RNA: Small nucleolar RNA SNORD115
RNA sequence: AGAUCAAUGAUGAUGCUGAAACUGGUCUUCAGAAGAGAUGAUGACAUAAAAAUCAUUCUUAAUAGGAUCACGUUGACGCCC
Numbered sequence: 001a002g003a004u005c006a007a008u009g010a011u012g013a014u015g016c017u018g019a020a021a022c023u024g025g026u027c028u029u030c031a032g033a034a035g036a037g038a039u040g041a042u043g044a045c046a047u048a049a050a051a052a053u054c055a056u057u058c059u060u061a062a063u064a065g066g067a068u069c070a071c072g073u074u075g076a077c078g079c080c081c
Stems, first nucleotide, its partner, number of pairs: 002080001004078001005075002008072002